[Rfam]
Background
Shown here is a 95-nucleotide sequence from Paenalicyclobacillus macrosporangiidus, a member of the family "S10-Clostridia ribosomal protein leader". The base pairs follow the family's consensus structure, which is taken from published work. A search with the family's covariance model found it, with a score of 36 bits. The source organism's lineage runs through Bacteria, Bacillati, Bacillota, Bacilli and Paenalicyclobacillus. A reference for the family is Eckert and Weinberg (2020), "Discovery of 20 novel ribosomal leader candidates in bacteria and archaea", BMC Microbiol.

RNA sequence: UGACAGCGAUGAGGCAGAAGGUUGCUCAUGUGCCCUCGGCCAUAUGGGGCACCACUGAGGAGAAUUUCUGCGGAGUAUGUCCAAACAAUGGGCGA
Numbered sequence: 001u002g003a004c005a006g007c008g009a010u011g012a013g014g015c016a017g018a019a020g021g022u023u024g025c026u027c028a029u030g031u032g033c034c035c036u037c038g039g040c041c042a043u044a045u046g047g048g049g050c051a052c053c054a055c056u057g058a059g060g061a062g063a064a065u066u067u068c069u070g071c072g073g074a075g076u077a078u079g080u081c082c083a084a085a086c087a088a089u090g091g092g093c094g095a
Base pairs, nucleotide, nucleotide: 014071015070016069019067020066021065025062026061027060029058078094079093080092081091082090083089